[Rfam]
This 71-nucleotide RNA from Xenopus laevis belongs to the Rfam family "mir-451 microRNA precursor family". The organism belongs to Xenopus, within Eukaryota. Pairs were carried over by alignment from the consensus structure, which was predicted with RNAalifold.
RNA sequence: UGUAGGGUGGCAAUGAAACCGUUACCAUUACUGAGUUUAGUAAUGGUAAGGGUUCUGUUGCUGCUCUUCCA
Numbered sequence: 001u002g003u004a005g006g007g008u009g010g011c012a013a014u015g016a017a018a019c020c021g022u023u024a025c026c027a028u029u030a031c032u033g034a035g036u037u038u039a040g041u042a043a044u045g046g047u048a049a050g051g052g053u054u055c056u057g058u059u060g061c062u063g064c065u066c067u068u069c070c071a
Stems, first nucleotide, its partner, number of pairs: 007064003011060003017054004022049012